[Rfam]
RNA sequence: CCUCAGGCUCCCUGGGGCACUAACAGCCACCUGUGCCCUGGGGAGAGUGCGCCGAGCUCCCUAAAGGGCUGCAGUGCGCAUGGAUGGUCCUGGGAGCAGCU
Numbered sequence: 001c002c003u004c005a006g007g008c009u010c011c012c013u014g015g016g017g018c019a020c021u022a023a024c025a026g027c028c029a030c031c032u033g034u035g036c037c038c039u040g041g042g043g044a045g046a047g048u049g050c051g052c053c054g055a056g057c058u059c060c061c062u063a064a065a066g067g068g069c070u071g072c073a074g075u076g077c078g079c080a081u082g083g084a085u086g087g088u089c090c091u092g093g094g095a096g097c098a099g100c101u
Base pairs, nucleotide, nucleotide: 007097008096009095010094011093012092014090015089018086019085020083021082022081026077027076031074032073033072034071035069036068037067038066040062041061042060043059044058045057048054049053
Dot-bracket structure: ......((((((.((..(((((...((...((((((((.((((((..((...))..))))))...)))).)))).))...))).))..)).))))))....